[Rfam]
Nucleotides: 443
Base pairs, nucleotide, nucleotide: 001439002438003437004436005435007433008432010431011430012429013379014378015377016376017375018374019373021046022045023044024043025042026041027040028039029038051427052426053425055424056423057422058421059420060282061281062280063279069311070310074277075276076275078274079273080094081093082092083091084090095109096107097106098105099104110272111271115270116269117266118265119264131213132212133209134208135207138204139203140202141201221239222238223237224236225235226234241261242259243258244257245256246255247254248253286336287335288334294322295321296320297319298318299317302316303315304314306312343362344361345360346359348357349356350355
Number, partner (000 for none) and nucleotide at each position: 001439a002438a003437a004436g005435u006000a007433g008432g009000c010431g011430c012429a013379g014378g015377u016376g017375g018374u019373u020000g021046c022045g023044g024043a025042u026041u027040c028039g029038c030000a031000u032000u033000u034000u035000u036000c037000u038029g039028c040027g041026a042025g043024u044023c045022u046021g047000a048000g049000g050000a051427a052426a053425g054000u055424c056423c057422g058421g059420g060282c061281u062280c063279c064000c065000g066000a067000a068000a069311g070310a071000c072000c073000a074277a075276a076275c077000u078274u079273g080094c081093u082092g083091g084090g085000u086000a087000a088000c089000g090084c091083c092082c093081a094080g095109u096107g097106c098105g099104g100000g101000u102000g103000a104099c105098c106097g107096u108000g109095a110272g111271g112000a113000u114000a115270g116269u117266g118265c119264c120000a121000c122000a123000g124000a125000a126000a127000c128000a129000u130000a131213c132212c133209g134208c135207c136000g137000a138204u139203g140202g141201g142000a143000a144000g145000g146000a147000u148000a149000a150000a151000g152000g153000u154000a155000g156000a157000a158000g159000g160000c161000u162000c163000c164000a165000g166000g167000a168000u169000g170000a171000a172000u173000g174000u175000a176000u177000u178000c179000u180000u181000c182000c183000u184000g185000c186000c187000u188000u189000u190000u191000u192000c193000c194000u195000g196000a197000u198000u199000c200000u201141u202140u203139u204138a205000c206000a207135g208134g209133u210000a211000a212132g213131g214000g215000u216000g217000c218000a219000a220000a221239g222238g223237u224236g225235u226234g227000g228000u229000a230000a231000g232000a233000g234226c235225g236224c237223a238222c239221c240000a241261g242259c243258a244257g245256c246255a247254u248253c249000g250000a251000g252000a253248g254247g255246u256245g257244c258243u259242g260000g261241c262000u263000c264119g265118g266117u267000a268000a269116a270115c271111c272110c273079c274078g275076g276075u277074u278000g279063g280062g281061a282060g283000c284000a285000a286336g287335g288334u289000c290000g291000a292000g293000a294322g295321g296320a297319a298318c299317u300000a301000c302316g303315g304314u305000u306312g307000g308000u309000c310070u311069u312306u313000u314304a315303c316302c317299a318298g319297u320296u321295c322294c323000g324000g325000a326000u327000a328000u329000g330000g331000a332000g333000a334288a335287c336286c337000g338000c339000a340000u341000g342000a343362g344361g345360c346359g347000u348357c349356u350355g351000g352000u353000a354000a355350c356349a357348g358000c359346c360345g361344u362343c363000c364000u365000a366000g367000a368000u369000a370000g371000a372000u373019a374018a375017c376016c377015a378014c379013c380000c381000u382000c383000u384000u385000u386000a387000g388000u389000a390000g391000c392000u393000u394000c395000u396000u397000g398000a399000u400000g401000g402000u403000u404000g405000c406000u407000a408000g409000g410000g411000a412000g413000a414000a415000c416000a417000g418000a419000a420059c421058c422057c423056g424055g425053c426052u427051u428000a429012u430011g431010u432008c433007c434000g435005a436004c437003u438002u439001u440000c441000u442000c443000u
This 443-nucleotide RNA sequence from Moorena producens belongs to the Rfam family "Bacterial RNase P class A". The base pairs follow the family's consensus structure, which is taken from published work. Rfam links the family to the GO terms ribonuclease P activity, tRNA processing and dimeric ribonuclease P complex.